[Rfam]
RNA sequence: CAAGUUGGUCAGGCAGUCGCUGUAAUGCUGUUUCAGUGUUAUGGAGGAAAGUCCGGGCUUCGCAGGGUAAGGUGCCAGGUAACGCCUGGGGGGCGCGAGUCUACGGAAAGUGCAGCAGAAAAAAUACCGCCUAAGCAGUUUACUGCCGGUAAGGUUGAAAUGGUGCGGUAAGAGCGCACCGCGCAUCUGGUAACAGUAUGUGGCAAGGUAAACCCCACCUGAAGCAAGACCAAAUAGGAAUCCAUUGGCGUGACCCGCGCUGGAUUCGGGUAGGUCGCUAGAGGCAUGUAGCGAUACAUGUUCGAGAGGAAUGACUGUCCACGACAGAACCCGGCUUAUCGACCAACUUGCAAU
Numbered sequence: 001c002a003a004g005u006u007g008g009u010c011a012g013g014c015a016g017u018c019g020c021u022g023u024a025a026u027g028c029u030g031u032u033u034c035a036g037u038g039u040u041a042u043g044g045a046g047g048a049a050a051g052u053c054c055g056g057g058c059u060u061c062g063c064a065g066g067g068u069a070a071g072g073u074g075c076c077a078g079g080u081a082a083c084g085c086c087u088g089g090g091g092g093g094c095g096c097g098a099g100u101c102u103a104c105g106g107a108a109a110g111u112g113c114a115g116c117a118g119a120a121a122a123a124a125u126a127c128c129g130c131c132u133a134a135g136c137a138g139u140u141u142a143c144u145g146c147c148g149g150u151a152a153g154g155u156u157g158a159a160a161u162g163g164u165g166c167g168g169u170a171a172g173a174g175c176g177c178a179c180c181g182c183g184c185a186u187c188u189g190g191u192a193a194c195a196g197u198a199u200g201u202g203g204c205a206a207g208g209u210a211a212a213c214c215c216c217a218c219c220u221g222a223a224g225c226a227a228g229a230c231c232a233a234a235u236a237g238g239a240a241u242c243c244a245u246u247g248g249c250g251u252g253a254c255c256c257g258c259g260c261u262g263g264a265u266u267c268g269g270g271u272a273g274g275u276c277g278c279u280a281g282a283g284g285c286a287u288g289u290a291g292c293g294a295u296a297c298a299u300g301u302u303c304g305a306g307a308g309g310a311a312u313g314a315c316u317g318u319c320c321a322c323g324a325c326a327g328a329a330c331c332c333g334g335c336u337u338a339u340c341g342a343c344c345a346a347c348u349u350g351c352a353a354u
Stems, first nucleotide, its partner, number of pairs: 001350010011339001012319007020044009049337003053334005058224004065256004070220005075089005090104001091102004105215002110213002112209002127154002129150003135146004162180006181204001182202005187196003228276004238267006247261005283302008
Dot-bracket structure: ((((((((((((((((((.(((((((((.......)))))))))....[[[.[[[[[((((...[[[[.((((((((((.....)))))(((((....)))).)((...((((.............(((((...((((....)))).)))..)).......((((((.......))))))(((((((((....))).))))).)...))..)))))))))))))...((((......((((((...(((((.]]]]))))))))))).....))))......((((((((....))))))))..........)))))))..........]]]]]]]].).))))))))))....